[Rfam]
RNA sequence: GCAACACAAGGUGAUGGUGUUCCACCUAAUUGAACCGCUGCAAAGCUGAUGACGCCUACCCAAAU
Numbered sequence: 001g002c003a004a005c006a007c008a009a010g011g012u013g014a015u016g017g018u019g020u021u022c023c024a025c026c027u028a029a030u031u032g033a034a035c036c037g038c039u040g041c042a043a044a045g046c047u048g049a050u051g052a053c054g055c056c057u058a059c060c061c062a063a064a065u
Stems, first nucleotide, its partner, number of pairs: 010026004016056006037046003
RNA: Fluoride riboswitch aptamer (crcB RNA motif)
Organism: Mucilaginibacter mali